[Rfam]
RNA sequence: CGCAUAUUUUGCGCUGGCGGAGCUCGACCGCCGGUCGAAGUGAUGGUCGGGUUCAUCGACGAUCAGCGAGGGAAGCACGGGGUCGAGCCAAUCUGCAGGGUUCUGCCGAUCGCCCCG
Numbered sequence: 001c002g003c004a005u006a007u008u009u010u011g012c013g014c015u016g017g018c019g020g021a022g023c024u025c026g027a028c029c030g031c032c033g034g035u036c037g038a039a040g041u042g043a044u045g046g047u048c049g050g051g052u053u054c055a056u057c058g059a060c061g062a063u064c065a066g067c068g069a070g071g072g073a074a075g076c077a078c079g080g081g082g083u084c085g086a087g088c089c090a091a092u093c094u095g096c097a098g099g100g101u102u103c104u105g106c107c108g109a110u111c112g113c114c115c116c117g
Base pairs, nucleotide, nucleotide: 016032017031018030019029020028078117079116080115081114082113089112092109093108095106096105097104098103